This 77-nucleotide RNA sequence from Polypterus senegalus belongs to the Rfam family "Small nucleolar RNA SNORD83".
[Rfam]
RNA sequence: GCCACAUGAUGAUUGCGUACAUUCACGAGCACUCUGUGCUAAGAUGACUUUCUAUCUAUCACCCUUGACUGAUGGCU
Numbered sequence: 001g002c003c004a005c006a007u008g009a010u011g012a013u014u015g016c017g018u019a020c021a022u023u024c025a026c027g028a029g030c031a032c033u034c035u036g037u038g039c040u041a042a043g044a045u046g047a048c049u050u051u052c053u054a055u056c057u058a059u060c061a062c063c064c065u066u067g068a069c070u071g072a073u074g075g076c077u
Stems, first nucleotide, its partner, number of pairs: 001076004029039004
On this family, see Jady and Kiss, Nucleic Acids Res 2000: "Characterisation of the U83 and U84 small nucleolar RNAs: two novel 2'-O-ribose methylation guide RNAs that lack complementarities to ribosomal RNAs".